[Rfam]
RNA sequence: CAAUAGUCAUGAUGGUCAAAGCUCAUGGGAAUUGUGCGUUUUUGCGUACAGUUUUCUAGAGUUU
Numbered sequence: 001c002a003a004u005a006g007u008c009a010u011g012a013u014g015g016u017c018a019a020a021g022c023u024c025a026u027g028g029g030a031a032u033u034g035u036g037c038g039u040u041u042u043u044g045c046g047u048a049c050a051g052u053u054u055u056c057u058a059g060a061g062u063u064u
Stems, first nucleotide, its partner, number of pairs: 019064006033050006
About this RNA:
Shown here is a 64-nucleotide sequence from Streptococcus vestibularis, a member of the family "Streptococcus sRNA Spd-sr37". Rfam classes the family as a small RNA. It is one of the family's seed sequences.